This 45-nucleotide RNA from Sporosarcina sp. JAI121 belongs to the Rfam family "PreQ1 (pre queuosine) riboswitch aptamer". About the family: This family is a bacterial riboswitch that binds to the metabolite preQ1, an intermediate in the biosynthesis of the modified nucleoside queuosine from GTP. One example of this riboswitch is located in the leader of the Bacillus subtilis ykvJKLM (queCDEF) operon which encodes four genes necessary for queuosine production. PreQ1 binding to the riboswitch aptamer is thought to induce premature transcription termination within the leader to down-regulate expression of these genes. Lineage of the source: Bacteria > Bacillota > Caryophanales > Caryophanaceae > Sporosarcina.
RNA sequence: CACCACGUGGUUCGUAACCAUCCCACGUAAAAAAACUAGGGGGAA
Numbered sequence: 001c002a003c004c005a006c007g008u009g010g011u012u013c014g015u016a017a018c019c020a021u022c023c024c025a026c027g028u029a030a031a032a033a034a035a036c037u038a039g040g041g042g043g044a045a
Base pairs, nucleotide, nucleotide: 006027007026008025009024010023015038016037
Dot-bracket structure: .....(((((....[[......))))).........]].......
Rfam links the family to the GO term queuosine biosynthetic process. Pairs were carried over by alignment from the consensus structure.